RNA sequence: CCCCCUAAGCCUCUCAGCGAUGCUCAAACCUGGGGGU
Numbered sequence: 001c002c003c004c005c006u007a008a009g010c011c012u013c014u015c016a017g018c019g020a021u022g023c024u025c026a027a028a029c030c031u032g033g034g035g036g037u
Stems, first nucleotide, its partner, number of pairs: 001036005008024003
Description: This 37-nucleotide RNA sequence belongs to the Rfam family "abiF RNA". The family's consensus secondary structure is taken from published work. It is one of the family's seed sequences. Rfam describes the family as follows. Actinobacteria, Bacteroidetes, Clostridia, Proteobacteria, one Clostridia phage.